About this RNA
A member of the RNA family "transfer-messenger RNA" from Sulfoacidibacillus thermotolerans, 361 nucleotides long. From the family's description: Bacterial tmRNA, also known as 10Sa RNA or SsrA, is named for its dual tRNA and mRNA-like properties. Its role is to liberate the mRNA from a stalled ribosome. To accomplish this part of the tmRNA is used as a reading frame that ends in a translation stop signal. The broken mRNA is replaced in the ribosome by the tmRNA and translation of the tmRNA leads to addition of a proteolysis tag to the incomplete protein enabling recognition by a protease. Rfam classes the family as a non-coding RNA gene. The match comes from Rfam's covariance-model search (216 bits). Pairs were carried over by alignment from the consensus structure, which is taken from published work. The family is grouped with related families in Rfam's "tRNA clan". Rfam links the family to the GO term RNA catabolic process. NCBI's taxonomy places the organism under Bacteria, Bacillati, Caryophanales, Alicyclobacillaceae, Sulfoacidibacillus.
[Rfam]
RNA sequence: GGGGGCGUUCUGGAUUCGACGGGGAUCGUUCGAGCAUGAGUAGCGGGUCGUGGGGCUGCGCUUCACGUUAAUCACGCAGACCUAAACACAAACGCAAACAACGAAGAAAACUACGCUCUCGCUGCUUAAUCGCAGCUGACGUCGUCUCUCUCUUCUUCUCCCACGGGAAGUGAGAGGCGUCACCUAAGUGGGAUAGUCGGAGAUCAGCGUCCGCGUCUCUCCGGCGAAUAAAAGCGGACUAGCCUGAUCGAGAGCGUGUCGUUGCGCGCUCCUUGGGCGAACUUCAAACCAGCGAAUACACCCGUAGAAGCGAGUGUAGCGAGGUCUUCGGACAGGGGUUCGAUUCCCCUCGCCUCCACCA
Dot-bracket structure: (((((((............((((((((.(....((((..((..(((((((((([.[[[[[..))))).......]]]]].].....................................(.(((((......))))).)....((((((.(.((((((.[[[[[[)))))).).))))))........]]]]]]..((((((((.....[..[.....))))))))...........]..].((((((..(...(((..[[[[.[)))..)..))))))..........].].]]]....))))).....))..))))...).))))))))...(((((.......))))))))))))....